Source information:
This 118-nucleotide sequence belongs to the Rfam family "LOOT RNA". Pairs were carried over by alignment from the consensus structure, which is taken from published work. The sequence is in the family's curated seed alignment.
RNA sequence: AGCCUAAACCAACGAGCAAUUGCUGGCACGGCUAAAAGUCCAGUUAGACAUAAAAAACCCAUCAUGGGGUCGUCUAACUGGCCAUAUCGGGAAACCGGUAUGAGUGGCUUCGGCCACU
Numbered sequence: 001a002g003c004c005u006a007a008a009c010c011a012a013c014g015a016g017c018a019a020u021u022g023c024u025g026g027c028a029c030g031g032c033u034a035a036a037a038g039u040c041c042a043g044u045u046a047g048a049c050a051u052a053a054a055a056a057a058c059c060c061a062u063c064a065u066g067g068g069g070u071c072g073u074c075u076a077a078c079u080g081g082c083c084a085u086a087u088c089g090g091g092a093a094a095c096c097g098g099u100a101u102g103a104g105u106g107g108c109u110u111c112g113g114c115c116a117c118u
Stems, first nucleotide, its partner, number of pairs: 001033004009026003013022003040081010056070001058068003083102008103118006
Background:
The family's RNA type in Rfam is small RNA.